[Rfam]
RNA sequence: UUGGCGGUGAACUCCCAGACGGCGUCGGGGUCGAGCACCGCCUGCUCGCCGAAGCGGUCGCCGUCACCGAGGACGCCGACGACGGUCUCGUCGCCGUACUUGCCGGUGCCGAUCUGGUUGAUCUUGCCGUGGGCGAUGAGGUAGAUCCGGUCGGCCGCCGCGCCGCGCUCGGCCAGCACCUCACCGGGGCCGAAGUCCCGCUGCUCGCAGCGGUCGGCGAGGGCGAUCAGCACGUCGUCGUCCUCGAAGCCGCGCAGCAGGGCGAGUUCGCCCAGCUCGCGCGGGAUGACCCGGACCUCCGAACCGGUCUUGAUGAACUCGAUCCGGCCGUCGCCCACGGUGUAGGUGAGGCGGCGGUUGACGCGGUACGCGCCACCGGCGGCCUGCACCCAGGGCAGCACCUUGAGCAGCCAGCGGGAGGUGAUCUCCUGCAUCUGCGGCGCGGACUUGGUGGUGGUGGCGAGAUUGCGGGCAGCGGCUGUGGUGAGGCUCGACUGCUGCGGAACCU
Numbered sequence: 001u002u003g004g005c006g007g008u009g010a011a012c013u014c015c016c017a018g019a020c021g022g023c024g025u026c027g028g029g030g031u032c033g034a035g036c037a038c039c040g041c042c043u044g045c046u047c048g049c050c051g052a053a054g055c056g057g058u059c060g061c062c063g064u065c066a067c068c069g070a071g072g073a074c075g076c077c078g079a080c081g082a083c084g085g086u087c088u089c090g091u092c093g094c095c096g097u098a099c100u101u102g103c104c105g106g107u108g109c110c111g112a113u114c115u116g117g118u119u120g121a122u123c124u125u126g127c128c129g130u131g132g133g134c135g136a137u138g139a140g141g142u143a144g145a146u147c148c149g150g151u152c153g154g155c156c157g158c159c160g161c162g163c164c165g166c167g168c169u170c171g172g173c174c175a176g177c178a179c180c181u182c183a184c185c186g187g188g189g190c191c192g193a194a195g196u197c198c199c200g201c202u203g204c205u206c207g208c209a210g211c212g213g214u215c216g217g218c219g220a221g222g223g224c225g226a227u228c229a230g231c232a233c234g235u236c237g238u239c240g241u242c243c244u245c246g247a248a249g250c251c252g253c254g255c256a257g258c259a260g261g262g263c264g265a266g267u268u269c270g271c272c273c274a275g276c277u278c279g280c281g282c283g284g285g286a287u288g289a290c291c292c293g294g295a296c297c298u299c300c301g302a303a304c305c306g307g308u309c310u311u312g313a314u315g316a317a318c319u320c321g322a323u324c325c326g327g328c329c330g331u332c333g334c335c336c337a338c339g340g341u342g343u344a345g346g347u348g349a350g351g352c353g354g355c356g357g358u359u360g361a362c363g364c365g366g367u368a369c370g371c372g373c374c375a376c377c378g379g380c381g382g383c384c385u386g387c388a389c390c391c392a393g394g395g396c397a398g399c400a401c402c403u404u405g406a407g408c409a410g411c412c413a414g415c416g417g418g419a420g421g422u423g424a425u426c427u428c429c430u431g432c433a434u435c436u437g438c439g440g441c442g443c444g445g446a447c448u449u450g451g452u453g454g455u456g457g458u459g460g461c462g463a464g465a466u467u468g469c470g471g472g473c474a475g476c477g478g479c480u481g482u483g484g485u486g487a488g489g490c491u492c493g494a495c496u497g498c499u500g501c502g503g504a505a506c507c508u
Base pairs, nucleotide, nucleotide: 006390007389008388009387011385014382015381018328021325022324025322026321027320028319029318031316032315036312037311040308041307042306049301051299052298054233058229060227062225063224064223065111068108075103077102078101079100082097083096084095085094086093118221119220122217123216127212130209131206132205133204134203135202138199140197143196150191154190155189156188158186160184162177165174234296235295236294240290241289242288244286245285251281252280253279254278256277257276258275260271262269329342330341331340332339352378353377354376356374357373362370363369391431392430393429394428395427397425399423400422401421403418404417407415437476438475440473443470444469446467448464449463451461452460477507478506480502481501482500484499487496488495
Background
The record is a 508-nucleotide RNA, which matches "Saccharopolyspora sRNA 350" in Rfam. Rfam links the family to the GO term regulation of secondary metabolite biosynthetic process. The match comes from Rfam's covariance-model search (180 bits).